[Rfam]
RNA sequence: CCGUCCCACCCCGCGGACUCACCUGACCGUACUGCCCCGCCCCGGGCUACCCUGUGCGGGUGCGUCUUCCACGGGAAGCGCAAAGCCGACAGCCGUCGCACCCCAGGGAGCAUCUUCCAUG
Numbered sequence: 001c002c003g004u005c006c007c008a009c010c011c012c013g014c015g016g017a018c019u020c021a022c023c024u025g026a027c028c029g030u031a032c033u034g035c036c037c038c039g040c041c042c043c044g045g046g047c048u049a050c051c052c053u054g055u056g057c058g059g060g061u062g063c064g065u066c067u068u069c070c071a072c073g074g075g076a077a078g079c080g081c082a083a084a085g086c087c088g089a090c091a092g093c094c095g096u097c098g099c100a101c102c103c104c105a106g107g108g109a110g111c112a113u114c115u116u117c118c119a120u121g
Stems, first nucleotide, its partner, number of pairs: 061082004066078004085099002088097003
This 121-nucleotide RNA sequence from Streptomyces colonosanans belongs to the Rfam family "Streptomyces-metH RNA". It scores 92 bits against the family's covariance model. Taxonomically the source falls in Streptomyces (Bacteria, Bacillati, Actinomycetota, Actinomycetes).